[Rfam]
RNA sequence: UCCGGAUAAACUUGUAUCCAUCCAAGAGAAUGGGGCAAGUCACUUAACGGAAUUAAAUUAAGUAAUACAUUUCAGGAUUGAUAAAGGCUUACAUAUAAGUGAAAUCCUGAAAUGACAGGAUAGCCGUAUGUCCUUUAGUGUUUUAUACUAUAAAAAUAAUCUUGAAUAACUAUAUUAAGUUUUCAAGUUACGGUAUG
Numbered sequence: 001u002c003c004g005g006a007u008a009a010a011c012u013u014g015u016a017u018c019c020a021u022c023c024a025a026g027a028g029a030a031u032g033g034g035g036c037a038a039g040u041c042a043c044u045u046a047a048c049g050g051a052a053u054u055a056a057a058u059u060a061a062g063u064a065a066u067a068c069a070u071u072u073c074a075g076g077a078u079u080g081a082u083a084a085a086g087g088c089u090u091a092c093a094u095a096u097a098a099g100u101g102a103a104a105u106c107c108u109g110a111a112a113u114g115a116c117a118g119g120a121u122a123g124c125c126g127u128a129u130g131u132c133c134u135u136u137a138g139u140g141u142u143u144u145a146u147a148c149u150a151u152a153a154a155a156a157u158a159a160u161c162u163u164g165a166a167u168a169a170c171u172a173u174a175u176u177a178a179g180u181u182u183u184c185a186a187g188u189u190a191c192g193g194u195a196u197g
Stems, first nucleotide, its partner, number of pairs: 001051004008044001010040006017034005022028001071111008087100002090097001117134005123194006129156001136150005161187006
The family of this 197-nucleotide sequence is "IS605-orfB-I RNA".